[Rfam]
RNA sequence: UUUUCCAGUGCGCUGAAUCUCCGAUAUCGGAGAGCGGGGGACCCGACGCAGAAGUCGAACGAUCAUGAUCGGCGGAUGCGGGUGAGCAAUCUUGGGGUGAAUUCUGCGGAGCGGAUCGGUCGGUCUCAGGACCGGCAUCGACCGUCACGCGGAUAGGGCAACUCUCGACGCCCGAACCCGACAGCUAACCUCGUAAGCGUAGUAGAGAGAGGUC
Numbered sequence: 001u002u003u004u005c006c007a008g009u010g011c012g013c014u015g016a017a018u019c020u021c022c023g024a025u026a027u028c029g030g031a032g033a034g035c036g037g038g039g040g041a042c043c044c045g046a047c048g049c050a051g052a053a054g055u056c057g058a059a060c061g062a063u064c065a066u067g068a069u070c071g072g073c074g075g076a077u078g079c080g081g082g083u084g085a086g087c088a089a090u091c092u093u094g095g096g097g098u099g100a101a102u103u104c105u106g107c108g109g110a111g112c113g114g115a116u117c118g119g120u121c122g123g124u125c126u127c128a129g130g131a132c133c134g135g136c137a138u139c140g141a142c143c144g145u146c147a148c149g150c151g152g153a154u155a156g157g158g159c160a161a162c163u164c165u166c167g168a169c170g171c172c173c174g175a176a177c178c179c180g181a182c183a184g185c186u187a188a189c190c191u192c193g194u195a196a197g198c199g200u201a202g203u204a205g206a207g208a209g210a211g212g213u214c
Base pairs, nucleotide, nucleotide: 011199012198013197014196018033019032020031021030022029023028034194035193036192037191038190039189044094045093095179096178097177103153104152105151106150107149108148156173157172158171159170